[Rfam]
Rfam assigns this 88-nucleotide sequence from Pristionchus pacificus to the family "mir-44 microRNA precursor family". Rfam links the family to the GO terms miRNA-mediated post-transcriptional gene silencing and RISC complex. The family's consensus secondary structure was predicted with RNAalifold. The organism belongs to Pristionchus, within Eukaryota.
RNA sequence: GCAGCCCCGCUCUGGAUGUGUGAUCUUGGUCGUAUCCGCGCAAAUGCUCAAUGAUUAUGACUAGAGACACAUUCAGCUUGGGGCCGGC
Numbered sequence: 001g002c003a004g005c006c007c008c009g010c011u012c013u014g015g016a017u018g019u020g021u022g023a024u025c026u027u028g029g030u031c032g033u034a035u036c037c038g039c040g041c042a043a044a045u046g047c048u049c050a051a052u053g054a055u056u057a058u059g060a061c062u063a064g065a066g067a068c069a070c071a072u073u074c075a076g077c078u079u080g081g082g083g084c085c086g087g088c
Base pairs, nucleotide, nucleotide: 005083006082007081008080009079012076013075014074015073016072017071018070019069020068024066028062029061030060031059032058033057034056